[Rfam]
RNA: Small nucleolar RNA R64/Z200 family
Organism: Musa troglodytarum
RNA sequence: GAUAUGCUUUGAUGAAUUAUGAAAAUAGAAUCUUCGCAUGUCAGACUUCAGAGAUGCCUCGAGUAUCGAUGAGAAGCCAUUUCAUUCUUCUGAGCAACC
Numbered sequence: 001g002a003u004a005u006g007c008u009u010u011g012a013u014g015a016a017u018u019a020u021g022a023a024a025a026u027a028g029a030a031u032c033u034u035c036g037c038a039u040g041u042c043a044g045a046c047u048u049c050a051g052a053g054a055u056g057c058c059u060c061g062a063g064u065a066u067c068g069a070u071g072a073g074a075a076g077c078c079a080u081u082u083c084a085u086u087c088u089u090c091u092g093a094g095c096a097a098c099c
Base pairs, nucleotide, nucleotide: 001099003097005096006095007094053067054066055065056064